Rfam assigns this 59-nucleotide RNA sequence to the family "L31-Actinobacteria ribosomal protein leader".
The sequence is in the family's curated seed alignment.

RNA sequence: CUGGUUCCCGGUUCACGUCGAGGUGUGCGGCUCAGCGCACCACCGACGACCCGGUGACC
Numbered sequence: 001c002u003g004g005u006u007c008c009c010g011g012u013u014c015a016c017g018u019c020g021a022g023g024u025g026u027g028c029g030g031c032u033c034a035g036c037g038c039a040c041c042a043c044c045g046a047c048g049a050c051c052c053g054g055u056g057a058c059c
Base pairs, nucleotide, nucleotide: 003059004058006057008054009053010052011051016048017047018046019045020044022041023040024039025038026037027036028035